[Rfam]
Rfam assigns this 75-nucleotide RNA from Streptomyces zhaozhouensis to the family "ASpks TB sRNA". Rfam 15.1 lists 9,052 matches to the family in 683 species. Lineage of the source: Bacteria > Actinomycetes > Kitasatosporales > Streptomycetaceae > Streptomyces. The base pairs follow the family's consensus structure, which is taken from published work. A search with the family's covariance model found it, with a score of 68 bits. A reference for the family is Arnvig and Young (2009), "Identification of small RNAs in Mycobacterium tuberculosis", Mol Microbiol.
RNA sequence: CUUGACGGAGCCGAGCAGCAGCGGCUGGUCGGCGGCCCGGUCCCGGCCGUAGGUGGCCAGCAGCGCGUCCGCCUC
Numbered sequence: 001c002u003u004g005a006c007g008g009a010g011c012c013g014a015g016c017a018g019c020a021g022c023g024g025c026u027g028g029u030c031g032g033c034g035g036c037c038c039g040g041u042c043c044c045g046g047c048c049g050u051a052g053g054u055g056g057c058c059a060g061c062a063g064c065g066c067g068u069c070c071g072c073c074u075c
Base pairs, nucleotide, nucleotide: 014026015025016024032070038065039064043060045058047056048055049054